This 81-nucleotide sequence from Thermohalobacter berrensis belongs to the Rfam family "Clostridiales-2 RNA". The organism belongs to Thermohalobacter, within Bacteria. The family's RNA type in Rfam is small RNA.

[Rfam]
RNA sequence: AAAAAAGAGGGGUUGUAGGGGAUGAAAUCCCCUGCCGUAUUAGAGGGGUGCUCAGGGUACCAAGUACCCGCCGAAGGGGAA
Dot-bracket structure: ..............((((((((.....))))))))...................(((((.....)))))............